[Rfam]
RNA sequence: UAUAAGCACCUUUCACAACGGAUCGUCCGACACGUACCUGUCGGUGAAGGGAAGAGUAA
Numbered sequence: 001u002a003u004a005a006g007c008a009c010c011u012u013u014c015a016c017a018a019c020g021g022a023u024c025g026u027c028c029g030a031c032a033c034g035u036a037c038c039u040g041u042c043g044g045u046g047a048a049g050g051g052a053a054g055a056g057u058a059a
Stems, first nucleotide, its partner, number of pairs: 009051007027044006
The record is a 59-nucleotide RNA from Arcanobacterium sp. S3PF19, which matches "msiK RNA" in Rfam. The organism belongs to Arcanobacterium, within Bacteria. By type it is a cis-regulatory element. The family's consensus secondary structure is taken from published work.